This 81-nucleotide RNA sequence from Solanum lycopersicum belongs to the Rfam family "Small nucleolar RNA R21".
The match comes from Rfam's covariance-model search (58 bits).
A reference for the family is Barneche et al. (2001), "Identification of 66 box C/D snoRNAs in Arabidopsis thaliana: extensive gene duplications generated multiple isoforms predicting new ribosomal RNA 2'-O-methylation sites", J Mol Biol.
The organism belongs to Solanum subgen. Lycopersicon, within Eukaryota.
RNA sequence: AAUCCCUAUGAUGAAGUUAGCUGAAUAAUUUAAAAGUAGUGGCCUGAUGACCAUUGAUGAAAAGCUUUACUCUGAGGGACU
Numbered sequence: 001a002a003u004c005c006c007u008a009u010g011a012u013g014a015a016g017u018u019a020g021c022u023g024a025a026u027a028a029u030u031u032a033a034a035a036g037u038a039g040u041g042g043c044c045u046g047a048u049g050a051c052c053a054u055u056g057a058u059g060a061a062a063a064g065c066u067u068u069a070c071u072c073u074g075a076g077g078g079a080c081u
Stems, first nucleotide, its partner, number of pairs: 001081001003079004